[Rfam]
RNA sequence: UGCAGCCAUUUCGACGUCCGCUUGCUCGGUGCGGACGGCUCGAAACGCGU
Numbered sequence: 001u002g003c004a005g006c007c008a009u010u011u012c013g014a015c016g017u018c019c020g021c022u023u024g025c026u027c028g029g030u031g032c033g034g035a036c037g038g039c040u041c042g043a044a045a046c047g048c049g050u
Stems, first nucleotide, its partner, number of pairs: 011043004017035005